[Rfam]
RNA: Small nucleolar RNA snoR74
Organism: Ricinus communis
RNA sequence: AAAAAAGCAGGGGCUUGUUGUAUCCUUUGUGAACAGGCCUCUCGUAAACGUCAGGGAAAUUAAUGUUUUCAUUGUUAUUGGGUGAACCUCUGUUUUUUGAUUUAUUUGUCGCUGAAGGUUCAGUAAAUAAUGGAACAUUU
Numbered sequence: 001a002a003a004a005a006a007g008c009a010g011g012g013g014c015u016u017g018u019u020g021u022a023u024c025c026u027u028u029g030u031g032a033a034c035a036g037g038c039c040u041c042u043c044g045u046a047a048a049c050g051u052c053a054g055g056g057a058a059a060u061u062a063a064u065g066u067u068u069u070c071a072u073u074g075u076u077a078u079u080g081g082g083u084g085a086a087c088c089u090c091u092g093u094u095u096u097u098u099g100a101u102u103u104a105u106u107u108g109u110c111g112c113u114g115a116a117g118g119u120u121c122a123g124u125a126a127a128u129a130a131u132g133g134a135a136c137a138u139u140u
Stems, first nucleotide, its partner, number of pairs: 005051001007049001011040002014037006068134009083122007
Dot-bracket structure: ....(.(...((.((((((............)))))).))........).)................(((((((((......(((((((..........................)))))))...)))))))))......